RNA sequence: GGUGUGAUGUGUGCGUGGUUGCCAUCUGCGUUAUGUACCGUCGCCAGGCUGUGUCUUACAGCUUGUCGGCAGUGCUCACUCCACACACCUGUGGCCAUAGAGCCACUGGAGAUCAUAGUACUGGCUCUGUGAAGUCUUUGACUCCUUACCACUGGUCAGCCUCCAUACUCUCCUACAAAC
Numbered sequence: 001g002g003u004g005u006g007a008u009g010u011g012u013g014c015g016u017g018g019u020u021g022c023c024a025u026c027u028g029c030g031u032u033a034u035g036u037a038c039c040g041u042c043g044c045c046a047g048g049c050u051g052u053g054u055c056u057u058a059c060a061g062c063u064u065g066u067c068g069g070c071a072g073u074g075c076u077c078a079c080u081c082c083a084c085a086c087a088c089c090u091g092u093g094g095c096c097a098u099a100g101a102g103c104c105a106c107u108g109g110a111g112a113u114c115a116u117a118g119u120a121c122u123g124g125c126u127c128u129g130u131g132a133a134g135u136c137u138u139u140g141a142c143u144c145c146u147u148a149c150c151a152c153u154g155g156u157c158a159g160c161c162u163c164c165a166u167a168c169u170c171u172c173c174u175a176c177a178a179a180c
Base pairs, nucleotide, nucleotide: 013092014091030084031083035079036074037073038072040070041069043067045065046064047063050060051059052058108173109172110171111170112169121159122158123157124156125155126154129152130151131150134142135141136140

The family of this 180-nucleotide RNA from Oncorhynchus mykiss is "Small nucleolar RNA SNORA23". The organism belongs to Oncorhynchus, within Eukaryota. Rfam describes the family as follows. The members of this family belong to the H/ACA class of snoRNAs which are thought to guide the sites of modification of uridines to pseudouridines. The base pairs follow the family's consensus structure, which was predicted with RNAalifold. The literature on the family includes a 2001 paper in EMBO J by Huttenhofer et al., "RNomics: an experimental approach that identifies 201 candidates for novel, small, non-messenger RNAs in mouse".